[Rfam]
RNA sequence: UGACAGUUGUGAUGAUGAUGACAUGUCGUUUUUACCCUGAAACAAGUCAUGUGGGUUUUCAGUCACUACCUCUUCUGAACAGUCA
Numbered sequence: 001u002g003a004c005a006g007u008u009g010u011g012a013u014g015a016u017g018a019u020g021a022c023a024u025g026u027c028g029u030u031u032u033u034a035c036c037c038u039g040a041a042a043c044a045a046g047u048c049a050u051g052u053g054g055g056u057u058u059u060c061a062g063u064c065a066c067u068a069c070c071u072c073u074u075c076u077g078a079a080c081a082g083u084c085a
Stems, first nucleotide, its partner, number of pairs: 002084003006080002
RNA: Small nucleolar RNA SNORD11B
Organism: Cyclopterus lumpus